RNA sequence: UAAUUAAGAAUCAAAAACAGCUUUACUGAUAUUCAGGAACCACCUCCUUCGCCGGACCAAUCUCCCUUGGCCCGGCUUUUUC
Numbered sequence: 001u002a003a004u005u006a007a008g009a010a011u012c013a014a015a016a017a018c019a020g021c022u023u024u025a026c027u028g029a030u031a032u033u034c035a036g037g038a039a040c041c042a043c044c045u046c047c048u049u050c051g052c053c054g055g056a057c058c059a060a061u062c063u064c065c066c067u068u069g070g071c072c073c074g075g076c077u078u079u080u081u082c
Base pairs, nucleotide, nucleotide: 035048036047037046038045051076052075053074054073055072057070058069059068060067
Shown here is an 82-nucleotide RNA from Chimaeribacter arupi, a member of the family "CyaR/Rye RNA". A reference for the family is Righetti et al. (2016), "Temperature-responsive in vitro RNA structurome of Yersinia pseudotuberculosis", Proc Natl Acad Sci U S A. The base pairs follow the family's consensus structure, which was predicted with PFOLD. About the family: This sRNA was originally identified in a large scale screen of E. coli. It was shown to bind Hfq and called RyeE. This sRNA has since been characterised as a post-transcriptional regulator of the 18 kDa OmpX porin in Salmonella. Phylogenetic and mutational analyses suggest that a conserved RNA hairpin of this sRNA which features a C-rich apical loop, acts to sequester the Shine-Dalgarno sequence of ompX mRNA and inhibits translational initiation. The expression of this sRNA has been shown to be tightly controlled by the cyclic AMP receptor protein, CRP and has been renamed CyaR (cyclic AMP-activated RNA). The family's RNA type in Rfam is small RNA.